[Rfam]
RNA sequence: AUUCGUCUUCAGGGCAGGGUGAAAUUCCCGACCGGUGGUAUAGUCCACGACCUCGUAUUUCGAUACGGGCUGAACUGGUGUAAUUCCAGUACCGACAGUACAGUCUGGAUGGAAGAAGAUGGGG
Numbered sequence: 001a002u003u004c005g006u007c008u009u010c011a012g013g014g015c016a017g018g019g020u021g022a023a024a025u026u027c028c029c030g031a032c033c034g035g036u037g038g039u040a041u042a043g044u045c046c047a048c049g050a051c052c053u054c055g056u057a058u059u060u061c062g063a064u065a066c067g068g069g070c071u072g073a074a075c076u077g078g079u080g081u082a083a084u085u086c087c088a089g090u091a092c093c094g095a096c097a098g099u100a101c102a103g104u105c106u107g108g109a110u111g112g113a114a115g116a117a118g119a120u121g122g123g124g
Stems, first nucleotide, its partner, number of pairs: 003122008017029003031104002033094002035048004043092002052069002074090005096107003
Dot-bracket structure: ..((((((((......(((.......))).[[((((((....[[))))...((..............))....(((((.......)))))]])).(((....]]))).......))))))))..
RNA: FMN riboswitch aptamer (RFN element)
Organism: Trichococcus palustris